[Rfam]
RNA sequence: AGCAAUGUCGCUAUGCGGCUUUAUACAUUCCUAUAAAGUUCGGUACGAAACAUCGGCGAGAU
Numbered sequence: 001a002g003c004a005a006u007g008u009c010g011c012u013a014u015g016c017g018g019c020u021u022u023a024u025a026c027a028u029u030c031c032u033a034u035a036a037a038g039u040u041c042g043g044u045a046c047g048a049a050a051c052a053u054c055g056g057c058g059a060g061a062u
Base pairs, nucleotide, nucleotide: 002057003056005053006052007051012045013044014043016042017041018040020037021036022035023034024033
Rfam assigns this 62-nucleotide RNA sequence from Angomonas deanei to the family "Trypanosomatid snoRNA TB10Cs3H1". Gene Ontology terms of the family: nucleolus and RNA processing. The match comes from Rfam's covariance-model search (43 bits). The family has 4 seed sequences and 46 matches in Rfam 15.1. The base pairs follow the family's consensus structure, which was predicted with WAR.